[Rfam]
RNA sequence: CAUCGUUCACCGGGGUGUCCGCGCGCAAGCGGGCUGAGAAUCGGACCAGCGUCCGUAAACCCGCCGAACCUGAUCCGGGUCAUGCCGGCGAAGGGAGUGAGUAAGCCUCUGGC
Numbered sequence: 001c002a003u004c005g006u007u008c009a010c011c012g013g014g015g016u017g018u019c020c021g022c023g024c025g026c027a028a029g030c031g032g033g034c035u036g037a038g039a040a041u042c043g044g045a046c047c048a049g050c051g052u053c054c055g056u057a058a059a060c061c062c063g064c065c066g067a068a069c070c071u072g073a074u075c076c077g078g079g080u081c082a083u084g085c086c087g088g089c090g091a092a093g094g095g096a097g098u099g100a101g102u103a104a105g106c107c108u109c110u111g112g113c
Base pairs, nucleotide, nucleotide: 006101007100008099009098010097011063012062013061014060016057017034018033019032020031021030042055043054044053045052069094070093071092075088076087077086078085
This 113-nucleotide sequence from Asticcacaulis excentricus belongs to the Rfam family "TPP riboswitch aptamer (THI element)".